MIR396 microRNA precursor family: a 135-nucleotide RNA sequence from Digitaria exilis.
The family's consensus secondary structure was predicted with WAR.
The match comes from Rfam's covariance-model search (83 bits).
For this family Rfam cites "Computational identification of plant microRNAs and their targets, including a stress-induced miRNA" (Jones-Rhoades and Bartel, Mol Cell, 2004).

RNA sequence: CUUUGCGAUCUUCCACAGCUUUCUUGAACUGCUGCGUGGAUUCCGAUAACUGGCAGUUCUUUGAGAACAGAUUGAUUGCGGCCUCGGUUUGUGAUCUGUCGAGCAGUUCAAUAAAGCUGUGGGAAAUUGCAGAGA
Numbered sequence: 001c002u003u004u005g006c007g008a009u010c011u012u013c014c015a016c017a018g019c020u021u022u023c024u025u026g027a028a029c030u031g032c033u034g035c036g037u038g039g040a041u042u043c044c045g046a047u048a049a050c051u052g053g054c055a056g057u058u059c060u061u062u063g064a065g066a067a068c069a070g071a072u073u074g075a076u077u078g079c080g081g082c083c084u085c086g087g088u089u090u091g092u093g094a095u096c097u098g099u100c101g102a103g104c105a106g107u108u109c110a111a112u113a114a115a116g117c118u119g120u121g122g123g124a125a126a127u128u129g130c131a132g133a134g135a
Stems, first nucleotide, its partner, number of pairs: 003132005013122003017118006024111004029106005